A member of the RNA family "U2 spliceosomal RNA" from Platysternon megacephalum, 187 nucleotides long. A search with the family's covariance model found it, with a score of 86 bits. Its family is annotated with U2 snRNP, pre-mRNA branch point binding and mRNA branch site recognition in the Gene Ontology. About the family: U2 is a small nuclear RNA (snRNA) component of the spliceosome (involved in pre-mRNA splicing). Complementary binding between U2 snRNA (in an area lying towards the 5' end but 3' to hairpin I) and the branchpoint sequence (BPS) of the intron results the bulging out of an unpaired adenosine, on the BPS, which initiates a nucleophilic attack at the intronic 5' splice site, thus starting the first of two transesterification reactions that mediate splicing.
RNA sequence: AUAAUUUUAACAUUAGCUUUAAUAAAAAUUUUAAAUCUGUUCUUAUCAGUUUAAUAUCUGAUACCUUCUCUAUCUGAGAACUCUGUAUUACAUGGAUUUUUGGAGCAGGGAGAUGGAAGAGGAGCUUACUCCAUCCAAUCCACGCAUUAACCCGAUAUCGCAGCACUUCGGGGAGAAUAAAUUGGUU
Numbered sequence: 001a002u003a004a005u006u007u008u009a010a011c012a013u014u015a016g017c018u019u020u021a022a023u024a025a026a027a028a029u030u031u032u033a034a035a036u037c038u039g040u041u042c043u044u045a046u047c048a049g050u051u052u053a054a055u056a057u058c059u060g061a062u063a064c065c066u067u068c069u070c071u072a073u074c075u076g077a078g079a080a081c082u083c084u085g086u087a088u089u090a091c092a093u094g095g096a097u098u099u100u101u102g103g104a105g106c107a108g109g110g111a112g113a114u115g116g117a118a119g120a121g122g123a124g125c126u127u128a129c130u131c132c133a134u135c136c137a138a139u140c141c142a143c144g145c146a147u148u149a150a151c152c153c154g155a156u157a158u159c160g161c162a163g164c165a166c167u168u169c170g171g172g173g174a175g176a177a178u179a180a181a182u183u184g185g186u187u
Stems, first nucleotide, its partner, number of pairs: 007022003011016001044063006066080005109141003115135002121132004146178003151172005